[Rfam]
RNA sequence: UGUCGGCUCCCCGGUCAGCGAGGUAUAGAGUUCCUACGUGGACAGGACCCGUAGGAACUUCAUACCGUGCUCUUUGGGAGAGUCUAA
Numbered sequence: 001u002g003u004c005g006g007c008u009c010c011c012c013g014g015u016c017a018g019c020g021a022g023g024u025a026u027a028g029a030g031u032u033c034c035u036a037c038g039u040g041g042a043c044a045g046g047a048c049c050c051g052u053a054g055g056a057a058c059u060u061c062a063u064a065c066c067g068u069g070c071u072c073u074u075u076g077g078g079a080g081a082g083u084c085u086a087a
Stems, first nucleotide, its partner, number of pairs: 012076003017071004022066005028060010

Rfam assigns this 87-nucleotide RNA from Penaeus vannamei to the family "mir-276 microRNA precursor family". On this family, see Li et al., BMC Genomics 2009: "Direct sequencing and expression analysis of a large number of miRNAs in Aedes aegypti and a multi-species survey of novel mosquito miRNAs". The base pairs follow the family's consensus structure, which was predicted with RNAalifold. It scores 66 bits against the family's covariance model. The organism belongs to Penaeus, within Eukaryota.